The family of this 81-nucleotide RNA is "freshwater-2 RNA". Rfam's curators put it in the seed alignment. It is annotated as a cis-regulatory element.
[Rfam]
RNA sequence: CACUCUCAUUCUGAGAGUUUAUGCAGUUACCCACUGCGUAGCGGCUAGAACCCGCUAAUUUUAUCAAAGGAAAAACAAAUG
Numbered sequence: 001c002a003c004u005c006u007c008a009u010u011c012u013g014a015g016a017g018u019u020u021a022u023g024c025a026g027u028u029a030c031c032c033a034c035u036g037c038g039u040a041g042c043g044g045c046u047a048g049a050a051c052c053c054g055c056u057a058a059u060u061u062u063a064u065c066a067a068a069g070g071a072a073a074a075a076c077a078a079a080u081g
Base pairs, nucleotide, nucleotide: 002018003017004016005015006014020040021039022038023037024036025035026034041055042054043053044052
Dot-bracket structure: .(((((.......))))).(((((((.......)))))))((((.......))))..........................